[Rfam]
RNA sequence: AAUAGUAUAAUGACAAAUCAGAUUUUUCCUCCUCAUUUUUAGCAUUUUCAAAUGGAUUUAAAUUUUUUCAGGAGGAAAAAGCUGAAAAUGAAGAGGAAAAAAAUCUGAUUUGUUAUUUUCCUAUU
Numbered sequence: 001a002a003u004a005g006u007a008u009a010a011u012g013a014c015a016a017a018u019c020a021g022a023u024u025u026u027u028c029c030u031c032c033u034c035a036u037u038u039u040u041a042g043c044a045u046u047u048u049c050a051a052a053u054g055g056a057u058u059u060a061a062a063u064u065u066u067u068u069c070a071g072g073a074g075g076a077a078a079a080a081g082c083u084g085a086a087a088a089u090g091a092a093g094a095g096g097a098a099a100a101a102a103a104u105c106u107g108a109u110u111u112g113u114u115a116u117u118u119u120c121c122u123a124u125u
Stems, first nucleotide, its partner, number of pairs: 001125005007119001009117014023102005029095003033091007041083002045079004
RNA: MIR7504 microRNA precursor family
Organism: Gossypium davidsonii